RNA sequence: UAUCCUUUGUGCCCGGCAAAAACAUUCCCACAGCCGGAGCUAAUAAGUAAUG
Numbered sequence: 001u002a003u004c005c006u007u008u009g010u011g012c013c014c015g016g017c018a019a020a021a022a023c024a025u026u027c028c029c030a031c032a033g034c035c036g037g038a039g040c041u042a043a044u045a046a047g048u049a050a051u052g
Base pairs, nucleotide, nucleotide: 013037014036015035016034017033
Dot-bracket structure: ............(((((...............)))))...............
This 52-nucleotide sequence from Escherichia fergusonii belongs to the Rfam family "PyrC leader". Taxonomically the source falls in Escherichia fergusonii (Bacteria, Pseudomonadati, Gammaproteobacteria, Escherichia). Rfam classes the family as a cis-regulatory leader. Gene Ontology term of the family: regulation of gene expression. The family's consensus secondary structure is taken from published work.